About this RNA: The family of this 135-nucleotide sequence from Rhodococcoides fascians is "Glycine riboswitch aptamer". It is one of the family's seed sequences. About the family: This family represents the bacterial glycine riboswitch.

RNA sequence: UUCGACAACUCUGGAAAGUGGUGGGAGCACCCACCCGCCCAAGGGGAAAGGUGCCGGUGCGCGCAUGUCAGCGCGCCGUGUUCUACCGAAUCUCUCAGGCGCACGCGUCAGCGAGCACACGACAGAGGGGGAGGA
Numbered sequence: 001u002u003c004g005a006c007a008a009c010u011c012u013g014g015a016a017a018g019u020g021g022u023g024g025g026a027g028c029a030c031c032c033a034c035c036c037g038c039c040c041a042a043g044g045g046g047a048a049a050g051g052u053g054c055c056g057g058u059g060c061g062c063g064c065a066u067g068u069c070a071g072c073g074c075g076c077c078g079u080g081u082u083c084u085a086c087c088g089a090a091u092c093u094c095u096c097a098g099g100c101g102c103a104c105g106c107g108u109c110a111g112c113g114a115g116c117a118c119a120c121g122a123c124a125g126a127g128g129g130g131g132a133g134g135a
Stems, first nucleotide, its partner, number of pairs: 006130001009127005020035004037100003041095001044094003050087004
NCBI's taxonomy places the organism under Bacteria, Bacillati, Actinomycetota, Nocardiaceae, Rhodococcoides.